The family of this 111-nucleotide RNA sequence from Papaver somniferum is "Small nucleolar RNA Z266".
The family's RNA type in Rfam is C/D-box small nucleolar RNA.
Lineage of the source: Eukaryota > Viridiplantae > Tracheophyta > Spermatophyta > Papaver.
The match comes from Rfam's covariance-model search (44 bits).
The literature on the family includes a 2003 paper in Nucleic Acids Res by Chen et al., "The high diversity of snoRNAs in plants: identification and comparative study of 120 snoRNA genes from Oryza sativa".
RNA sequence: UGAUAGCAAGACGAUGGUUCAAUUAGAUGUGUUAAAGGAGAGACAGAGAAAUCUUUUCUUCGUUACAAACUUAAAAUUUUAUUUGACAAAAAUGAGUCUGACUUGCUAUCU
Numbered sequence: 001u002g003a004u005a006g007c008a009a010g011a012c013g014a015u016g017g018u019u020c021a022a023u024u025a026g027a028u029g030u031g032u033u034a035a036a037g038g039a040g041a042g043a044c045a046g047a048g049a050a051a052u053c054u055u056u057u058c059u060u061c062g063u064u065a066c067a068a069a070c071u072u073a074a075a076a077u078u079u080u081a082u083u084u085g086a087c088a089a090a091a092a093u094g095a096g097u098c099u100g101a102c103u104u105g106c107u108a109u110c111u
Stems, first nucleotide, its partner, number of pairs: 002110009